[Rfam]
RNA sequence: UGUCUCAUGGUGUAAUGGUAGCACAACUGGUUUUGGUCCAGUUAGUCAGGGUUCGAAUCCUUGUGAGACAA
Numbered sequence: 001u002g003u004c005u006c007a008u009g010g011u012g013u014a015a016u017g018g019u020a021g022c023a024c025a026a027c028u029g030g031u032u033u034u035g036g037u038c039c040a041g042u043u044a045g046u047c048a049g050g051g052u053u054c055g056a057a058u059c060c061u062u063g064u065g066a067g068a069c070a071a
Stems, first nucleotide, its partner, number of pairs: 001070007010024004026042005047063005